[Rfam]
RNA sequence: AAAAAGGGCUUCUGUCCUGAGUGGCACACGUAGAGCAACUCGGUUGCUUUUCGUGCGGAAUCGACAUCAAGAGAUUUCGGAAGCAUAAUUUUUUGGCAUUUGGGCAGCUGGUGAUCGUUGGUCAA
Numbered sequence: 001a002a003a004a005a006g007g008g009c010u011u012c013u014g015u016c017c018u019g020a021g022u023g024g025c026a027c028a029c030g031u032a033g034a035g036c037a038a039c040u041c042g043g044u045u046g047c048u049u050u051u052c053g054u055g056c057g058g059a060a061u062c063g064a065c066a067u068c069a070a071g072a073g074a075u076u077u078c079g080g081a082a083g084c085a086u087a088a089u090u091u092u093u094u095g096g097c098a099u100u101u102g103g104g105c106a107g108c109u110g111g112u113g114a115u116c117g118u119u120g121g122u123c124a125a
Stems, first nucleotide, its partner, number of pairs: 008084005013026004027055004032050007056079007113123004

A member of the RNA family "U11 spliceosomal RNA" from Callithrix jacchus, 125 nucleotides long. The literature on the family includes a 1988 paper in Proc Natl Acad Sci U S A by Montzka and Steitz, "Additional low-abundance human small nuclear ribonucleoproteins: U11, U12, etc". The source organism's lineage runs through Eukaryota, Dipnotetrapodomorpha, Primates, Haplorrhini and Callithrix. By type it is a spliceosomal small nuclear RNA. It scores 94 bits against the family's covariance model.